Shown here is a 36-nucleotide RNA from Microscilla marina, a member of the family "DUF805b RNA".
Nucleotides: 036
Stems, first nucleotide, its partner, number of pairs: 003020003010035003
Number, partner (000 for none) and nucleotide at each position: 001000u002000c003020a004019g005018g006000g007000g008000a009000c010035u011034c012033c013000g014000a015000a016000a017000a018005c019004c020003u021000a022000g023000c024000a025000a026000u027000a028000g029000a030000g031000u032000a033012g034011g035010g036000a